About this RNA
Bacterial large signal recognition particle RNA: a 266-nucleotide RNA sequence from Aedoeadaptatus coxii. Lineage of the source: Bacteria > Bacillati > Tissierellia > Peptoniphilaceae > Aedoeadaptatus.
[Rfam]
RNA sequence: CCAUGCUAGAUGGGGAGUUAGCGGUUCCCUGUAACUUGCAGUCCGCUAUAGCAAGAUUGAAUUCCCGGCAUAGCAUUUAUUUUUUUGCAGUCUGCCCGAAACAAGUGAUGUUGAUGAGCAGGUCCUGCGCAAUAGACCCUUGCGAACCGUGUCAGGUCUUGACGGAAGCAGCACUAAGUAAGUCAGUCUAUGUGACGCAGAUUAGCCUUCUCUGAGUUAACUAUUUCGGUAACGUGUGGAGAUUAAAUGCAACGUCGGGUGCAUGG
Numbered sequence: 001c002c003a004u005g006c007u008a009g010a011u012g013g014g015g016a017g018u019u020a021g022c023g024g025u026u027c028c029c030u031g032u033a034a035c036u037u038g039c040a041g042u043c044c045g046c047u048a049u050a051g052c053a054a055g056a057u058u059g060a061a062u063u064c065c066c067g068g069c070a071u072a073g074c075a076u077u078u079a080u081u082u083u084u085u086u087g088c089a090g091u092c093u094g095c096c097c098g099a100a101a102c103a104a105g106u107g108a109u110g111u112u113g114a115u116g117a118g119c120a121g122g123u124c125c126u127g128c129g130c131a132a133u134a135g136a137c138c139c140u141u142g143c144g145a146a147c148c149g150u151g152u153c154a155g156g157u158c159u160u161g162a163c164g165g166a167a168g169c170a171g172c173a174c175u176a177a178g179u180a181a182g183u184c185a186g187u188c189u190a191u192g193u194g195a196c197g198c199a200g201a202u203u204a205g206c207c208u209u210c211u212c213u214g215a216g217u218u219a220a221c222u223a224u225u226u227c228g229g230u231a232a233c234g235u236g237u238g239g240a241g242a243u244u245a246a247a248u249g250c251a252a253c254g255u256c257g258g259g260u261g262c263a264u265g266g
Stems, first nucleotide, its partner, number of pairs: 001266006009058003012030008035055005064259006073250005082242008093231002097228005105221002107218003116212003120208004125200005130192002133190005139182005149174004157166003
Dot-bracket structure: ((((((..(((((((((((...))))))))....(((((...........)))))))).....((((((...(((((....((((((((...((..(((((...(((((......(((.((((.(((((((.(((((.(((((.....((((....(((....)))....))))...)))))...)))))))...)))))....)))).)))...))).))..))))).))...))))))))...)))))...)))))).))))))